[Rfam]
RNA sequence: GUUGAUAGUCCUGAGGCCACAGUAGAAGCACUCAUGGCACAGCCCUGUCAGAUCCCAACGAAUCUGUGAAUUCUGCA
Numbered sequence: 001g002u003u004g005a006u007a008g009u010c011c012u013g014a015g016g017c018c019a020c021a022g023u024a025g026a027a028g029c030a031c032u033c034a035u036g037g038c039a040c041a042g043c044c045c046u047g048u049c050a051g052a053u054c055c056c057a058a059c060g061a062a063u064c065u066g067u068g069a070a071u072u073c074u075g076c077a
Stems, first nucleotide, its partner, number of pairs: 013045001015044003022076006028040001049066005055060001
This 77-nucleotide RNA sequence from Alligator mississippiensis belongs to the Rfam family "Mammalian CPEB3 ribozyme". Pairs were carried over by alignment from the consensus structure, which is taken from published work.